The family of this 150-nucleotide RNA from Ensifer fredii is "Rhizobiales sRNA Atu_C7". A reference for the family is Wilms et al. (2012), "Deep sequencing uncovers numerous small RNAs on all four replicons of the plant pathogen Agrobacterium tumefaciens", RNA Biol.
RNA sequence: CGCUUCAUCGCUUGCGGGUGCUUCAAAGCCCCGGGUGAUAAGCAAAACAGGUUCUCCUGGCGUGUCUUGGUGCAGCAGGUGCUCCCUCCCUCAUCUGUAUGCGAUACGCCCUCCUUGCCUCGCUCGUCGCCACGACCAGCGAGGCAUUUU
Numbered sequence: 001c002g003c004u005u006c007a008u009c010g011c012u013u014g015c016g017g018g019u020g021c022u023u024c025a026a027a028g029c030c031c032c033g034g035g036u037g038a039u040a041a042g043c044a045a046a047a048c049a050g051g052u053u054c055u056c057c058u059g060g061c062g063u064g065u066c067u068u069g070g071u072g073c074a075g076c077a078g079g080u081g082c083u084c085c086c087u088c089c090c091u092c093a094u095c096u097g098u099a100u101g102c103g104a105u106a107c108g109c110c111c112u113c114c115u116u117g118c119c120u121c122g123c124u125c126g127u128c129g130c131c132a133c134g135a136c137c138a139g140c141g142a143g144g145c146a147u148u149u150u
Base pairs, nucleotide, nucleotide: 059110060109061108062107063106064105065104066103075098076097077096078095079094080093081092117145118144119143120142121141122140123139124138127135128134